[Rfam]
RNA sequence: CGCUGCUCCGUAUGCUCCCCUCCCCUUACGGUUUCGGACUGGCGGGCUUU
Numbered sequence: 001c002g003c004u005g006c007u008c009c010g011u012a013u014g015c016u017c018c019c020c021u022c023c024c025c026u027u028a029c030g031g032u033u034u035c036g037g038a039c040u041g042g043c044g045g046g047c048u049u050u
Stems, first nucleotide, its partner, number of pairs: 008045004014039001016038003024031002
RNA: Xanthomonadaceae sRNA sX5
Organism: Lysobacter soli